[Rfam]
RNA sequence: CUAUGAUGAAAAAUCAUGGCGGAAGGAG
Number, nucleotide and partner (000 for none) at each position: 001c019002u018003a017004u016005g015006a014007u013008g000009a000010a000011a000012a000013a007014u006015c005016a004017u003018g002019g001020c000021g000022g000023a000024a000025g000026g000027a000028g000
Overview: The record is a 28-nucleotide RNA sequence, which matches "L31-Firmicutes ribosomal protein leader" in Rfam. Rfam's curators put it in the seed alignment. The family is grouped with related families in Rfam's "Ribosomal Protein L31 Leader clan".